[Rfam]
F6 TB sRNA: a 57-nucleotide RNA from Rhodococcus sp. CX. For this family Rfam cites "Identification of small RNAs in Mycobacterium tuberculosis" (Arnvig and Young, Mol Microbiol, 2009). NCBI's taxonomy places the organism under Bacteria, Actinomycetota, Actinomycetes, Nocardiaceae, Rhodococcus. By type it is a small RNA.

RNA sequence: CUAUCGACCCCGCAUUGCUGCCUGACCCCCGACCUGGUGGCAACGCGGGGUCUUUCU
Numbered sequence: 001c002u003a004u005c006g007a008c009c010c011c012g013c014a015u016u017g018c019u020g021c022c023u024g025a026c027c028c029c030c031g032a033c034c035u036g037g038u039g040g041c042a043a044c045g046c047g048g049g050g051u052c053u054u055u056c057u
Base pairs, nucleotide, nucleotide: 003055007051008050009049010048011047012046013045015043016042017041018040019039020038021037022036